RNA: ylbH leader
Organism: Melghiribacillus thermohalophilus
RNA sequence: AAAAAAAACGCCUGCAGAUGUAAUCUGCAGGCUCUCCUUAUUCAACCGAAGUCAAAUAAGGAGUAAAAAGGGAGAGGAGAAACCGGAGGAAGAACUUAUGGGGAAACGUAAGCCUUCUCCGCUU
Numbered sequence: 001a002a003a004a005a006a007a008a009c010g011c012c013u014g015c016a017g018a019u020g021u022a023a024u025c026u027g028c029a030g031g032c033u034c035u036c037c038u039u040a041u042u043c044a045a046c047c048g049a050a051g052u053c054a055a056a057u058a059a060g061g062a063g064u065a066a067a068a069a070g071g072g073a074g075a076g077g078a079g080a081a082a083c084c085g086g087a088g089g090a091a092g093a094a095c096u097u098a099u100g101g102g103g104a105a106a107c108g109u110a111a112g113c114c115u116u117c118u119c120c121g122c123u124u
Stems, first nucleotide, its partner, number of pairs: 010032009035072005084121004089117004095112004